[Rfam]
RNA sequence: UGUUGUUAAUAGCAAACUUAUCGAAAGGUAAGGACGCAAAGCCAUGGGUCUGAAGAUGAAUUUAUUUCUAUGAUUGCCAGGCUGCCAAA
Numbered sequence: 001u002g003u004u005g006u007u008a009a010u011a012g013c014a015a016a017c018u019u020a021u022c023g024a025a026a027g028g029u030a031a032g033g034a035c036g037c038a039a040a041g042c043c044a045u046g047g048g049u050c051u052g053a054a055g056a057u058g059a060a061u062u063u064a065u066u067u068c069u070a071u072g073a074u075u076g077c078c079a080g081g082c083u084g085c086c087a088a089a
Base pairs, nucleotide, nucleotide: 012037013036017032018031019030020029021028022027040083041082042081043080045079046078047077048074049073050072055068056067058065